[Rfam]
RNA: Small nucleolar RNA SNORD47
RNA sequence: AGCUGGUAAUAAAUAGAUGAUGCCAUAUGAGUACAUUGAUUAUACUGAAACCGUUCCAUUUAUUUCUGAAGCU
Dot-bracket structure: ((((.................................................................))))